[Rfam]
RNA: FMN riboswitch aptamer (RFN element)
Organism: Cognatiluteimonas weifangensis
RNA sequence: CGCCGUCUUCAGGGCGGGGUGCGAUUCCCCACCGGCGGUAGGUGCGGGCCAGCGGCCCGCGCGAGCCCGCGAGCGCCCGCGCCGGCCCUGCCGCCGCGGGGUCAGCAGAUCCGGUGCGAAGCCGGAGCCGACGGUGACAGUCCGGAUGAAAGAAGACGGCG
Numbered sequence: 001c002g003c004c005g006u007c008u009u010c011a012g013g014g015c016g017g018g019g020u021g022c023g024a025u026u027c028c029c030c031a032c033c034g035g036c037g038g039u040a041g042g043u044g045c046g047g048g049c050c051a052g053c054g055g056c057c058c059g060c061g062c063g064a065g066c067c068c069g070c071g072a073g074c075g076c077c078c079g080c081g082c083c084g085g086c087c088c089u090g091c092c093g094c095c096g097c098g099g100g101g102u103c104a105g106c107a108g109a110u111c112c113g114g115u116g117c118g119a120a121g122c123c124g125g126a127g128c129c130g131a132c133g134g135u136g137a138c139a140g141u142c143c144g145g146a147u148g149a150a151a152g153a154a155g156a157c158g159g160c161g
Stems, first nucleotide, its partner, number of pairs: 003159008017029003031141002033130002035070004065128002073106002110126005132144003